Rfam assigns this 68-nucleotide RNA sequence from Nannospalax galili to the family "mir-302 microRNA precursor family". Rfam 15.1 lists 2,090 matches to the family in 516 species. The family's consensus secondary structure was predicted with RNAalifold.
RNA sequence: CCUUUGCUUUAACAUGGGAGUACCUGCUGUGUUAAACAAAAGUAAGUGCUUCCAUUUUUCAGCAAAGG
Dot-bracket structure: (((.((((..((.((((((((((.((((............)))).)))))))))).))..)))).)))
The source organism's lineage runs through Eukaryota, Teleostomi, Sarcopterygii, Myomorpha and Nannospalax.